[Rfam]
Nucleotides: 096
Base pairs, nucleotide, nucleotide: 010095011094012093013092016090018047019046020045022041023040024039025038026037027036050061051060052059053058063087064086065085066084067083
Number, partner (000 for none) and nucleotide at each position: 001000a002000c003000a004000g005000u006000a007000c008000a009000a010095a011094c012093u013092g014000a015000g016090c017000a018047g019046g020045c021000g022041a023040u024039g025038a026037a027036c028000u029000a030000u031000u032000a033000u034000g035000a036027g037026u038025u039024u040023a041022u042000g043000g044000g045020g046019c047018u048000g049000g050061g051060c052059u053058g054000g055000u056000a057000a058053c059052a060051g061050c062000a063087a064086u065085a066084g067083g068000a069000u070000u071000g072000u073000u074000a075000a076000u077000u078000c079000g080000a081000u082000a083067c084066c085065u086064g087063u088000g089000g090016g091000a092013c093012a094011g095010u096000a

NiCo (Nickel/Cobalt) riboswitch aptamer: a 96-nucleotide RNA sequence from Candidatus Afipia apatlaquensis. Gene Ontology terms of the family: cobalt ion binding and metal ion homeostasis. A reference for the family is Furukawa et al. (2015), "Bacterial riboswitches cooperatively bind Ni(2+) or Co(2+) ions and control expression of heavy metal transporters", Mol Cell.